[Rfam]
RNA sequence: UAUUACUACAGACGGAAACGGGCUGUAUAUCUGUGGUAUCGAAUUAGCGUUUAAGCGAACUGUAAGCUCGCCGACCACGGAGCCACCUAUUAGGUGGUUUUUUUUUAC
Numbered sequence: 001u002a003u004u005a006c007u008a009c010a011g012a013c014g015g016a017a018a019c020g021g022g023c024u025g026u027a028u029a030u031c032u033g034u035g036g037u038a039u040c041g042a043a044u045u046a047g048c049g050u051u052u053a054a055g056c057g058a059a060c061u062g063u064a065a066g067c068u069c070g071c072c073g074a075c076c077a078c079g080g081a082g083c084c085a086c087c088u089a090u091u092a093g094g095u096g097g098u099u100u101u102u103u104u105u106u107a108c
Stems, first nucleotide, its partner, number of pairs: 007027005013020002030081006039074003042051003055071004060066001082098007
Dot-bracket structure: ......(((((.((....))..)))))..((((((...((((((....)))...((((.(.....).))))))).))))))(((((((...)))))))..........
RNA: DUF3800-I RNA